Rfam assigns this 83-nucleotide RNA from Hibiscus syriacus to the family "Small nucleolar RNA SNORD25". A reference for the family is Qu et al. (2001), "Identification of 10 novel snoRNA gene clusters from Arabidopsis thaliana", Nucleic Acids Res. Lineage of the source: Eukaryota > eudicotyledons > Gunneridae > Malvaceae > Hibiscus.
[Rfam]
RNA sequence: AGAACGGUGAUGAGAUAUAACAGACCUGUAAUGAAUUGCGAGAAUGAUCGCAGAUUUUUUAACAUCUAAGGGACUGAGUUCAU
Numbered sequence: 001a002g003a004a005c006g007g008u009g010a011u012g013a014g015a016u017a018u019a020a021c022a023g024a025c026c027u028g029u030a031a032u033g034a035a036u037u038g039c040g041a042g043a044a045u046g047a048u049c050g051c052a053g054a055u056u057u058u059u060u061a062a063c064a065u066c067u068a069a070g071g072g073a074c075u076g077a078g079u080u081c082a083u
Base pairs, nucleotide, nucleotide: 002081003080004079005078